[Rfam]
A member of the RNA family "T-box leader" from Clostridium cadaveris, 264 nucleotides long.
Rfam describes the family as follows. Uncharged tRNA acts as the effector for transcription antitermination of genes in the T-box leader family.
NCBI's taxonomy places the organism under Bacteria, Bacillota, Clostridia, Clostridiaceae, Clostridium.
The match comes from Rfam's covariance-model search (105 bits).
RNA sequence: AAUAAUGCAGUGAAAAGAAGAGUAAUAGGAUGGUACUAUUUACAGAGAGCCGUGGAUGGUGAAAGGCGGCAGUAGAAAAUCUUAUGAAGAUGGCCUUAGAGCAGACUUUUCGAGCUAGAUUCUAGUUAGGGAAGUACGGGUGCGACCGUUAUAUUGCAGGGUAAUAAAAGCUUAUUUAUUUAGUAAGUGGAGUUACUUAGUGAGAUAUUCUUUGGUGACAGAGAAUAUGAAGUAGAGUGGUAAAGCGUUUAUAACGCCUCUAUG
Numbered sequence: 001a002a003u004a005a006u007g008c009a010g011u012g013a014a015a016a017g018a019a020g021a022g023u024a025a026u027a028g029g030a031u032g033g034u035a036c037u038a039u040u041u042a043c044a045g046a047g048a049g050c051c052g053u054g055g056a057u058g059g060u061g062a063a064a065g066g067c068g069g070c071a072g073u074a075g076a077a078a079a080u081c082u083u084a085u086g087a088a089g090a091u092g093g094c095c096u097u098a099g100a101g102c103a104g105a106c107u108u109u110u111c112g113a114g115c116u117a118g119a120u121u122c123u124a125g126u127u128a129g130g131g132a133a134g135u136a137c138g139g140g141u142g143c144g145a146c147c148g149u150u151a152u153a154u155u156g157c158a159g160g161g162u163a164a165u166a167a168a169a170g171c172u173u174a175u176u177u178a179u180u181u182a183g184u185a186a187g188u189g190g191a192g193u194u195a196c197u198u199a200g201u202g203a204g205a206u207a208u209u210c211u212u213u214g215g216u217g218a219c220a221g222a223g224a225a226u227a228u229g230a231a232g233u234a235g236a237g238u239g240g241u242a243a244a245g246c247g248u249u250u251a252u253a254a255c256g257c258c259u260c261u262a263u264g
Base pairs, nucleotide, nucleotide: 007102008101015097016096017095025085026084027083028082029081030080038073039072040071049070050069051068052067053066105135106134107133108132109131110130111129137148138147139146205228206227207226208225209224210223211222212221213220234261235260236259237258245257246256247255248254249253
Dot-bracket structure: ......((......(((.......((((((.......(((........(((((............))))))))......)))))).........)))...))..(((((((.................))))))).(((......)))........................................................(((((((((......))))))))).....((((.......(((((...)))))))))...